Rfam assigns this 128-nucleotide sequence from Mesocricetus auratus to the family "Small nucleolar RNA SNORA11".
Its family is annotated with RNA processing and nucleolus in the Gene Ontology.
The organism belongs to Mesocricetus, within Eukaryota.
From the family's description: U107 (SNORA11) is a member of the H/ACA class of snoRNAs that guide the sites of modification of uridines to pseudouridines.

[Rfam]
RNA sequence: GUGGUGUGCUCAGAGCAGGGAUCCUGAAGAAUGGACUCUCUGUUUACAACACACCCAACAGAAAUCUGGGGCCACUGCAACAAGGAGCACAACACUUGUGUCCUCCUGUGAGCAAGUGCCCUAUAUGU
Numbered sequence: 001g002u003g004g005u006g007u008g009c010u011c012a013g014a015g016c017a018g019g020g021a022u023c024c025u026g027a028a029g030a031a032u033g034g035a036c037u038c039u040c041u042g043u044u045u046a047c048a049a050c051a052c053a054c055c056c057a058a059c060a061g062a063a064a065u066c067u068g069g070g071g072c073c074a075c076u077g078c079a080a081c082a083a084g085g086a087g088c089a090c091a092a093c094a095c096u097u098g099u100g101u102c103c104u105c106c107u108g109u110g111a112g113c114a115a116g117u118g119c120c121c122u123a124u125a126u127g128u
Stems, first nucleotide, its partner, number of pairs: 003055006013045009022035003069121004076114003081110002084103003088100005